[Rfam]
RNA sequence: CAUCGAUAAUGGCAAACCAGUUGAAAAACUGGGACGCAAAGCCAAGGGCCUUAACCUUGAAUUCAAGGAAGGCAGCCGGUUGCCGAA
Dot-bracket structure: ...........((...((((((....))))))...))..((((..(((((.....((((....))))...)))..))))))......
Numbered sequence: 001c002a003u004c005g006a007u008a009a010u011g012g013c014a015a016a017c018c019a020g021u022u023g024a025a026a027a028a029c030u031g032g033g034a035c036g037c038a039a040a041g042c043c044a045a046g047g048g049c050c051u052u053a054a055c056c057u058u059g060a061a062u063u064c065a066a067g068g069a070a071g072g073c074a075g076c077c078g079g080u081u082g083c084c085g086a087a
Stems, first nucleotide, its partner, number of pairs: 012037002017032006040081004046077002048073003056067004